[Rfam]
Nucleotides: 101
Base pairs, nucleotide, nucleotide: 001100002099003098004097005096006095007094008093009092010091011090012089014087015086016085018083019082020081021080022079024078025077
Number, partner (000 for none) and nucleotide at each position: 001100g002099u003098g004097g005096a006095a007094g008093g009092g010091g011090c012089a013000u014087g015086c016085a017000g018083a019082g020081g021080a022079g023000c024078g025077g026000c027000c028000a029000u030000g031000c032000a033000u034000g035000g036000g037000a038000g039000c040000u041000u042000u043000g044000c045000u046000u047000u048000g049000c050000u051000u052000g053000c054000c055000u056000c057000u058000c059000c060000u061000g062000c063000u064000c065000u066000g067000g068000g069000c070000u071000c072000u073000a074000g075000c076000u077025c078024u079022c080021u081020c082019c083018u084000g085016u086015g087014c088000c089012u090011g091010c092009c093008u094007c095006u096005u097004c098003c099002a100001u101000u

Rfam assigns this 101-nucleotide RNA sequence from Hordeum vulgare to the family "MIR528 microRNA precursor family". The family's consensus secondary structure was predicted with RNAalifold. NCBI's taxonomy places the organism under Eukaryota, Tracheophyta, Triticeae, Hordeum, Hordeum vulgare.